RNA sequence: AGGCAAUGGCAGCACCAUUUCCAGAGCCAUCAACAGUGGAAUUCCAUGGCUCUUGGAAUGGCACUGCCAUGAGUGC
Numbered sequence: 001a002g003g004c005a006a007u008g009g010c011a012g013c014a015c016c017a018u019u020u021c022c023a024g025a026g027c028c029a030u031c032a033a034c035a036g037u038g039g040a041a042u043u044c045c046a047u048g049g050c051u052c053u054u055g056g057a058a059u060g061g062c063a064c065u066g067c068c069a070u071g072a073g074u075g076c
Base pairs, nucleotide, nucleotide: 003074004073006070007069008068010066011065012064015061016060017059018058019057020056023053024052025051026050027049028048029047030046
The record is a 76-nucleotide sequence from Platysteira castanea, which matches "mir-458 microRNA precursor family" in Rfam. The family's consensus secondary structure was predicted with RNAalifold.